[Rfam]
RNA sequence: CUUGGCUGUGAUGAAACUACUUGCCCUCGCUGAUCAGUUGAUGAGAAUUUUUCAGUGUACCAAAUUUCUGAGCCAAU
Numbered sequence: 001c002u003u004g005g006c007u008g009u010g011a012u013g014a015a016a017c018u019a020c021u022u023g024c025c026c027u028c029g030c031u032g033a034u035c036a037g038u039u040g041a042u043g044a045g046a047a048u049u050u051u052u053c054a055g056u057g058u059a060c061c062a063a064a065u066u067u068c069u070g071a072g073c074c075a076a077u
Stems, first nucleotide, its partner, number of pairs: 002076005
Small nucleolar RNA SNORD103/SNORD85: a 77-nucleotide sequence from Branchiostoma floridae. The family has 41 seed sequences and 1,349 matches in Rfam 15.1. The literature on the family includes a 2001 paper in EMBO J by Huttenhofer et al., "RNomics: an experimental approach that identifies 201 candidates for novel, small, non-messenger RNAs in mouse". By type it is a C/D-box small nucleolar RNA. Gene Ontology terms of the family: RNA processing and nucleolus.